[Rfam]
RNA sequence: CUUUUUCCCUUCACCACGGACCUGUGCCCAGAAUCCGCUGCUCGUUCAGCGCCGAAUCUGCGGCAGCUCGAUACCCCCAUGGGAAUCAUCAGCUUCAUUGCUAAACAUGAUGGCAGUCCUAUCGACAGGUCCUAGAGUAAUUCGGCGCAUUGUCGUCGCCCUGCUCGCCGUAAAAGGCUGAGCUCGGCGUUAUGGCGGCAGCGCGUCGUAAAGGUUAUAUUCCACUCCCCUUUUCCAAGAUCGUCGAUCGAUGAGGUUGGGGCAAACCAUGACUAUUCUUACAAAA
Numbered sequence: 001c002u003u004u005u006u007c008c009c010u011u012c013a014c015c016a017c018g019g020a021c022c023u024g025u026g027c028c029c030a031g032a033a034u035c036c037g038c039u040g041c042u043c044g045u046u047c048a049g050c051g052c053c054g055a056a057u058c059u060g061c062g063g064c065a066g067c068u069c070g071a072u073a074c075c076c077c078c079a080u081g082g083g084a085a086u087c088a089u090c091a092g093c094u095u096c097a098u099u100g101c102u103a104a105a106c107a108u109g110a111u112g113g114c115a116g117u118c119c120u121a122u123c124g125a126c127a128g129g130u131c132c133u134a135g136a137g138u139a140a141u142u143c144g145g146c147g148c149a150u151u152g153u154c155g156u157c158g159c160c161c162u163g164c165u166c167g168c169c170g171u172a173a174a175a176g177g178c179u180g181a182g183c184u185c186g187g188c189g190u191u192a193u194g195g196c197g198g199c200a201g202c203g204c205g206u207c208g209u210a211a212a213g214g215u216u217a218u219a220u221u222c223c224a225c226u227c228c229c230c231u232u233u234u235c236c237a238a239g240a241u242c243g244u245c246g247a248u249c250g251a252u253g254a255g256g257u258u259g260g261g262g263c264a265a266a267c268c269a270u271g272a273c274u275a276u277u278c279u280u281a282c283a284a285a286a
Stems, first nucleotide, its partner, number of pairs: 018132008026064003029060004034055002036051005071122003082114001085111005144206001145204002150201006157189004163183004167178002211279001213277001214273005227262004235256002239249004
Dot-bracket structure: .................(((((((((((((((.(((((((......)))))..)).)))).)))......(((........(..(((((.................)))))..).....)))..))))))))...........(((...((((((.((((..((((((........)).))))..))))......)))))).)).)....(.((((((........((((....((..((((...)))).....))..))))......)))))...).).......

Source information
Shown here is a 286-nucleotide RNA sequence from Pyricularia oryzae, a member of the family "A. fumigatus sRNA Afu_309". A search with the family's covariance model found it, with a score of 90 bits.